[Rfam]
RNA sequence: AUAAAAAAAAACUGUAAGUCGCCCUGGAUAAGGGCGUCUGCCAAAUGCCUAGAU
Numbered sequence: 001a002u003a004a005a006a007a008a009a010a011a012c013u014g015u016a017a018g019u020c021g022c023c024c025u026g027g028a029u030a031a032g033g034g035c036g037u038c039u040g041c042c043a044a045a046u047g048c049c050u051a052g053a054u
Stems, first nucleotide, its partner, number of pairs: 013043001014041003020036006